Description:
The record is an 80-nucleotide RNA sequence from Plasmodium falciparum, which matches "small nucleolar RNA snoR28" in Rfam. NCBI's taxonomy places the organism under Eukaryota, Sar, Plasmodiidae, Plasmodium, Plasmodium falciparum. A reference for the family is Chakrabarti et al. (2007), "Structural RNAs of known and unknown function identified in malaria parasites by comparative genomics and RNA analysis", RNA. By type it is a C/D-box small nucleolar RNA. Rfam links the family to the GO terms nucleolus and RNA processing.
RNA sequence: UAUAUAAUGAUGAAAACUUCAAGGAAGUGCCGUCCGAAAAAAAAAAUGUUGACGAUAAUUAAUUAAUCUGAACAUAAUUA
Numbered sequence: 001u002a003u004a005u006a007a008u009g010a011u012g013a014a015a016a017c018u019u020c021a022a023g024g025a026a027g028u029g030c031c032g033u034c035c036g037a038a039a040a041a042a043a044a045a046a047u048g049u050u051g052a053c054g055a056u057a058a059u060u061a062a063u064u065a066a067u068c069u070g071a072a073c074a075u076a077a078u079u080a
Stems, first nucleotide, its partner, number of pairs: 005080004